Overview:
Shown here is a 64-nucleotide RNA sequence from Pipistrellus kuhlii, a member of the family "U7 small nuclear RNA". On this family, see Spycher et al., Nucleic Acids Res 1994: "3' end processing of mouse histone pre-mRNA: evidence for additional base-pairing between U7 snRNA and pre-mRNA". It scores 53 bits against the family's covariance model.
[Rfam]
RNA sequence: AAGUGCUUACAGCUCUUUUUGAAUUUGUCUAGUAUGUCUUCCGGUUUUAUAUUGGAAGGUCCUC
Numbered sequence: 001a002a003g004u005g006c007u008u009a010c011a012g013c014u015c016u017u018u019u020u021g022a023a024u025u026u027g028u029c030u031a032g033u034a035u036g037u038c039u040u041c042c043g044g045u046u047u048u049a050u051a052u053u054g055g056a057a058g059g060u061c062c063u064c
Stems, first nucleotide, its partner, number of pairs: 036060010

Notes:
Taxonomically the source falls in Pipistrellus (Eukaryota, Craniata, Mammalia, Chiroptera).